[Rfam]
RNA sequence: CGAAUCCCGUCCGGGUAACUCUUAGCCUGAGGCCCGGUAUCGAGUGUUGCAGCGUCACUGGUAACAGUUGCGUUGAAGCGUACACAGAAAGGUAGUGAGGACGAAUGGACUGGGCUGGCCGCCCAAACCGUGAAUGGUAUUGAGCCCCGAAAUGCAUGUUUUCUCGGUAUCUGCCCAGGCAUUCGGACCUGCUAAAGGCAACACUGAGUUUCGCGUUUUGGCGAGCGAAGCUCGGAGACCCGGGGUCGAAGGCCA
Dot-bracket structure: ...........((((...(((.[.[[..))).)))).(.((..((((((((((((.((((....)))).))))))...)).)))).)).)..................................................((.((((((................(((..(((((..((((........))))...)))....(((((((((((......]].]))))))))))))))))))))))).)......
Numbered sequence: 001c002g003a004a005u006c007c008c009g010u011c012c013g014g015g016u017a018a019c020u021c022u023u024a025g026c027c028u029g030a031g032g033c034c035c036g037g038u039a040u041c042g043a044g045u046g047u048u049g050c051a052g053c054g055u056c057a058c059u060g061g062u063a064a065c066a067g068u069u070g071c072g073u074u075g076a077a078g079c080g081u082a083c084a085c086a087g088a089a090a091g092g093u094a095g096u097g098a099g100g101a102c103g104a105a106u107g108g109a110c111u112g113g114g115c116u117g118g119c120c121g122c123c124c125a126a127a128c129c130g131u132g133a134a135u136g137g138u139a140u141u142g143a144g145c146c147c148c149g150a151a152a153u154g155c156a157u158g159u160u161u162u163c164u165c166g167g168u169a170u171c172u173g174c175c176c177a178g179g180c181a182u183u184c185g186g187a188c189c190u191g192c193u194a195a196a197g198g199c200a201a202c203a204c205u206g207a208g209u210u211u212c213g214c215g216u217u218u219u220g221g222c223g224a225g226c227g228a229a230g231c232u233c234g235g236a237g238a239c240c241c242g243g244g245g246u247c248g249a250a251g252g253c254c255a
Stems, first nucleotide, its partner, number of pairs: 012036004019031003023224001025222002038090001040088002044085004048080002050075006057068004141249001142247001144246006166240003171237002173199003178193004204235011